Rfam assigns this 356-nucleotide part of an RNA from Halobaculum gomorrense to the family "Archaeal large subunit ribosomal RNA". The base pairs follow the family's consensus structure, which is taken from published work.
RNA sequence: CACAGUAGCAGCGAUAUUCGGGUGCGAACCCCGAAGGUCUGAAGGGUAAGAGUUCCUCGGCACUGCCAAUCAGCCGAGGGUUAGCCGAUCCUAAGUCCGGCCGCAAUUCGAACCGGACAAACGGGGAACUGGUUAAUAUUCCAGUGCCAUCACGCACUGAAAGUCGACGCUUUGGGAACUGGUAUGCCGGGCACUCGCCCGGUCAAAUCAGGGAAUCCCGUGGAAGCCGUAACGGCACGAAGCGAGAGAAGCCUGAGACAGCGCAAGAUACCACUACCCAGAGCCCGUGAAAAGACGAGCGUGAUGUUCGUAUCGAGAUCCGACACAGGUACCCUGGCAGAGCAAGCCAAGACCGA
Numbered sequence: 001c002a003c004a005g006u007a008g009c010a011g012c013g014a015u016a017u018u019c020g021g022g023u024g025c026g027a028a029c030c031c032c033g034a035a036g037g038u039c040u041g042a043a044g045g046g047u048a049a050g051a052g053u054u055c056c057u058c059g060g061c062a063c064u065g066c067c068a069a070u071c072a073g074c075c076g077a078g079g080g081u082u083a084g085c086c087g088a089u090c091c092u093a094a095g096u097c098c099g100g101c102c103g104c105a106a107u108u109c110g111a112a113c114c115g116g117a118c119a120a121a122c123g124g125g126g127a128a129c130u131g132g133u134u135a136a137u138a139u140u141c142c143a144g145u146g147c148c149a150u151c152a153c154g155c156a157c158u159g160a161a162a163g164u165c166g167a168c169g170c171u172u173u174g175g176g177a178a179c180u181g182g183u184a185u186g187c188c189g190g191g192c193a194c195u196c197g198c199c200c201g202g203u204c205a206a207a208u209c210a211g212g213g214a215a216u217c218c219c220g221u222g223g224a225a226g227c228c229g230u231a232a233c234g235g236c237a238c239g240a241a242g243c244g245a246g247a248g249a250a251g252c253c254u255g256a257g258a259c260a261g262c263g264c265a266a267g268a269u270a271c272c273a274c275u276a277c278c279c280a281g282a283g284c285c286c287g288u289g290a291a292a293a294g295a296c297g298a299g300c301g302u303g304a305u306g307u308u309c310g311u312a313u314c315g316a317g318a319u320c321c322g323a324c325a326c327a328g329g330u331a332c333c334c335u336g337g338c339a340g341a342g343c344a345a346g347c348c349a350a351g352a353c354c355g356a
Stems, first nucleotide, its partner, number of pairs: 017035006036354004044334004050314002055079006064072002086310003090124002095118006102110002128145005148306008163296003169284008180273005186203005208256004217246001219244003226236003262267001320329002335349004